[Rfam]
Shown here is a 61-nucleotide sequence from Pongo abelii, a member of the family "U7 small nuclear RNA". The organism belongs to Pongo, within Eukaryota. The family's consensus secondary structure was predicted with PFOLD. It scores 45 bits against the family's covariance model.

RNA sequence: GGGUGUUACAACUUAUUUAGAAUUUGUCUAGCAGAUUUUCCAGCUUUUACUGGAAGCCCCC
Numbered sequence: 001g002g003g004u005g006u007u008a009c010a011a012c013u014u015a016u017u018u019a020g021a022a023u024u025u026g027u028c029u030a031g032c033a034g035a036u037u038u039u040c041c042a043g044c045u046u047u048u049a050c051u052g053g054a055a056g057c058c059c060c061c
Stems, first nucleotide, its partner, number of pairs: 034058001036056003040053004